[Rfam]
RNA: Fluoride riboswitch aptamer (crcB RNA motif)
Organism: Dyella thiooxydans
RNA sequence: GGACGCAAGGGAGAUGGCAUGCCUCCCCGAACCGCCGCAAGGCUGAUGAUGCCUGGUCGAAC
Numbered sequence: 001g002g003a004c005g006c007a008a009g010g011g012a013g014a015u016g017g018c019a020u021g022c023c024u025c026c027c028c029g030a031a032c033c034g035c036c037g038c039a040a041g042g043c044u045g046a047u048g049a050u051g052c053c054u055g056g057u058c059g060a061a062c
Stems, first nucleotide, its partner, number of pairs: 010026004016053005034043003